RNA sequence: CUGUGUUCUACAGUGCACGUGUCUCCAGUGUGAGUCAGAGACUGGGGACCCGGCCCUGUUGGAAUAAA
Numbered sequence: 001c002u003g004u005g006u007u008c009u010a011c012a013g014u015g016c017a018c019g020u021g022u023c024u025c026c027a028g029u030g031u032g033a034g035u036c037a038g039a040g041a042c043u044g045g046g047g048a049c050c051c052g053g054c055c056c057u058g059u060u061g062g063a064a065u066a067a068a
Stems, first nucleotide, its partner, number of pairs: 006064004010059004015054002018052002021049009
RNA: mir-139 microRNA precursor family